[Rfam]
The family of this 135-nucleotide RNA from Tupaia belangeri is "U8 small nucleolar RNA".
Rfam classes the family as a C/D-box small nucleolar RNA.
The sequence is in the family's curated seed alignment.
On this family, see Peculis, Mol Cell Biol 1997: "The sequence of the 5' end of the U8 small nucleolar RNA is critical for 5.8S and 28S rRNA maturation".
Gene Ontology terms of the family: RNA processing and nucleolus.
RNA sequence: UCGUCAGGUGGGAUAAUCCUUACCUGUUCCUCCUUCGGGAGGGCAGAUAGAACAUGAUGAUUGGAGUCCGCAUGAUACGUGAUUAGCGUCUCUGCGUAAUCAGGACUUGCAACACCCUGAUUACUCCUAUCUGAU
Numbered sequence: 001u002c003g004u005c006a007g008g009u010g011g012g013a014u015a016a017u018c019c020u021u022a023c024c025u026g027u028u029c030c031u032c033c034u035u036c037g038g039g040a041g042g043g044c045a046g047a048u049a050g051a052a053c054a055u056g057a058u059g060a061u062u063g064g065a066g067u068c069c070g071c072a073u074g075a076u077a078c079g080u081g082a083u084u085a086g087c088g089u090c091u092c093u094g095c096g097u098a099a100u101c102a103g104g105a106c107u108u109g110c111a112a113c114a115c116c117c118u119g120a121u122u123a124c125u126c127c128u129a130u131c132u133g134a135u
Stems, first nucleotide, its partner, number of pairs: 024046003028043006074092002077089003080085001096124009